[Rfam]
RNA: radC RNA
Organism: Pseudomonas aeruginosa
RNA sequence: GGGAGUCGCAAGAGCUGUCGAUGACAGCACCCAGGUGGCCCGAACCUUAAAGGUCACGCCGCUCCCGCGGUGGUUCACCCGCAAGUACGAUUCGCGUCCGGCAGCUCGUACGGUCACUACCCAUGUGAUGGAUGC
Numbered sequence: 001g002g003g004a005g006u007c008g009c010a011a012g013a014g015c016u017g018u019c020g021a022u023g024a025c026a027g028c029a030c031c032c033a034g035g036u037g038g039c040c041c042g043a044a045c046c047u048u049a050a051a052g053g054u055c056a057c058g059c060c061g062c063u064c065c066c067g068c069g070g071u072g073g074u075u076c077a078c079c080c081g082c083a084a085g086u087a088c089g090a091u092u093c094g095c096g097u098c099c100g101g102c103a104g105c106u107c108g109u110a111c112g113g114u115c116a117c118u119a120c121c122c123a124u125g126u127g128a129u130g131g132a133u134g135c
Base pairs, nucleotide, nucleotide: 014028015027016026017025018024019023035057036056037055038054039053040052043075044074045073046072058071059070060069061068062067107134108133113129114128115127116126117125